[Rfam]
RNA sequence: AAACCGCCUCAUAAGUUUUGCAACUGUAGCAGUUUUGGCCCCCUCAAGACCAAAUUUUGGUAAAAAAAAAAACAAUGUGGCACCUCACUUAGGGUGUCACGUCAGCGUAGACCGAGUCAAAAUUGGCCUUGGAGGCCAAAACUGCCACAGAUGCAAAGCUUAGGGGUUGGUUU
Numbered sequence: 001a002a003a004c005c006g007c008c009u010c011a012u013a014a015g016u017u018u019u020g021c022a023a024c025u026g027u028a029g030c031a032g033u034u035u036u037g038g039c040c041c042c043c044u045c046a047a048g049a050c051c052a053a054a055u056u057u058u059g060g061u062a063a064a065a066a067a068a069a070a071a072a073c074a075a076u077g078u079g080g081c082a083c084c085u086c087a088c089u090u091a092g093g094g095u096g097u098c099a100c101g102u103c104a105g106c107g108u109a110g111a112c113c114g115a116g117u118c119a120a121a122a123u124u125g126g127c128c129u130u131g132g133a134g135g136c137c138a139a140a141a142c143u144g145c146c147a148c149a150g151a152u153g154c155a156a157a158g159c160u161u162a163g164g165g166g167u168u169g170g171u172u173u
Stems, first nucleotide, its partner, number of pairs: 001173002004170003008166001012162011024150004029145012042132001045131003075102002078099007
RNA: MIR2619 microRNA precursor family
Organism: Medicago truncatula